RNA sequence: UUUAUUGCGUCGAUCAAUGCAUUGAAAGUGACUACAUCGGGGUUCCGAUUUUUUUUGUUCUUCAUAUGAUGAAGCGGAAACAGUAAUCAACCCUGGUUUAGUCACUUUCACUGCAUUAAUCAAUGCAUU
Numbered sequence: 001u002u003u004a005u006u007g008c009g010u011c012g013a014u015c016a017a018u019g020c021a022u023u024g025a026a027a028g029u030g031a032c033u034a035c036a037u038c039g040g041g042g043u044u045c046c047g048a049u050u051u052u053u054u055u056u057g058u059u060c061u062u063c064a065u066a067u068g069a070u071g072a073a074g075c076g077g078a079a080a081c082a083g084u085a086a087u088c089a090a091c092c093c094u095g096g097u098u099u100a101g102u103c104a105c106u107u108u109c110a111c112u113g114c115a116u117u118a119a120u121c122a123a124u125g126c127a128u129u
Stems, first nucleotide, its partner, number of pairs: 006127004012121003016117006023110012036097007043080002049074004
RNA: MIR161 microRNA precursor family